[Rfam]
RNA: U12 minor spliceosomal RNA
Organism: Molossus molossus
RNA sequence: AUGCCUUAAACUUAAGAGUAAUGCAAAUAAUGAUUCAAUGUGAUGCCCAAGUCCUCACUGCUAAUGUGAGAUGAAUUUAUGAGCGGGAAAAGGUUGCCCCUAAGAUGACCCGCCUACUUUGCAGGAUGCCUGGGAGUUAAGAUCUGCCCA
Numbered sequence: 001a002u003g004c005c006u007u008a009a010a011c012u013u014a015a016g017a018g019u020a021a022u023g024c025a026a027a028u029a030a031u032g033a034u035u036c037a038a039u040g041u042g043a044u045g046c047c048c049a050a051g052u053c054c055u056c057a058c059u060g061c062u063a064a065u066g067u068g069a070g071a072u073g074a075a076u077u078u079a080u081g082a083g084c085g086g087g088a089a090a091a092g093g094u095u096g097c098c099c100c101u102a103a104g105a106u107g108a109c110c111c112g113c114c115u116a117c118u119u120u121g122c123a124g125g126a127u128g129c130c131u132g133g134g135a136g137u138u139a140a141g142a143u144c145u146g147c148c149c150a
Stems, first nucleotide, its partner, number of pairs: 004023001006021003032053004054070005085149003091145005100134002103131002106128002109125002112122002